c-di-GMP-I riboswitch aptamer: a 90-nucleotide RNA sequence from Geobacter pickeringii.
The source organism's lineage runs through Bacteria, Thermodesulfobacteriota, Desulfuromonadia, Geobacterales and Geobacter.
RNA sequence: AACAGAAAAAGGCAAACCAUCCUAAAGGGUGGGACGCAAAGCCGACGGCCUACGUCACGCGAAUCGUGAUAUGGCGGCAGGGUUGCCAGG
Numbered sequence: 001a002a003c004a005g006a007a008a009a010a011g012g013c014a015a016a017c018c019a020u021c022c023u024a025a026a027g028g029g030u031g032g033g034a035c036g037c038a039a040a041g042c043c044g045a046c047g048g049c050c051u052a053c054g055u056c057a058c059g060c061g062a063a064u065c066g067u068g069a070u071a072u073g074g075c076g077g078c079a080g081g082g083u084u085g086c087c088a089g090g
Base pairs, nucleotide, nucleotide: 012037013036017032018031019030020029021028022027040084041083042082043081047078048075049074050073055069056068057067058066